[Rfam]
RNA sequence: CCGCUCCUCGCAGGAGAGAGGGCGUGUACUCCAGCAUACUUCAAGCUACAUGUACGUUGGCAUAAAGUAUAACGCUCCGCCGAAGGCGCAAACUCCCAUAAUCGCUCAGGCUACCCUAACUGCGAAUU
Numbered sequence: 001c002c003g004c005u006c007c008u009c010g011c012a013g014g015a016g017a018g019a020g021g022g023c024g025u026g027u028a029c030u031c032c033a034g035c036a037u038a039c040u041u042c043a044a045g046c047u048a049c050a051u052g053u054a055c056g057u058u059g060g061c062a063u064a065a066a067g068u069a070u071a072a073c074g075c076u077c078c079g080c081c082g083a084a085g086g087c088g089c090a091a092a093c094u095c096c097c098a099u100a101a102u103c104g105c106u107c108a109g110g111c112u113a114c115c116c117u118a119a120c121u122g123c124g125a126a127u128u
Stems, first nucleotide, its partner, number of pairs: 008125006020077006079111003082107002086105003092099001